RNA sequence: CCGGUCGUAUGCCAAACCACUUGCGAGGGUGGGACGGAAAGCCAAGGAUCUCUAAAAUAAUAAGAGACAGCCUGGUUGCAAAG
Numbered sequence: 001c002c003g004g005u006c007g008u009a010u011g012c013c014a015a016a017c018c019a020c021u022u023g024c025g026a027g028g029g030u031g032g033g034a035c036g037g038a039a040a041g042c043c044a045a046g047g048a049u050c051u052c053u054a055a056a057a058u059a060a061u062a063a064g065a066g067a068c069a070g071c072c073u074g075g076u077u078g079c080a081a082a083g
Base pairs, nucleotide, nucleotide: 012037013036017032018031019030020029021028022027040077041076042075043074045073046072047071049067050066051065052064053063
A member of the RNA family "c-di-GMP-I riboswitch aptamer" from Marinobacter antarcticus, 83 nucleotides long. Taxonomically the source falls in Marinobacter (Bacteria, Pseudomonadota, Gammaproteobacteria, Marinobacteraceae). The base pairs follow the family's consensus structure, which is taken from published work. The match comes from Rfam's covariance-model search (53 bits).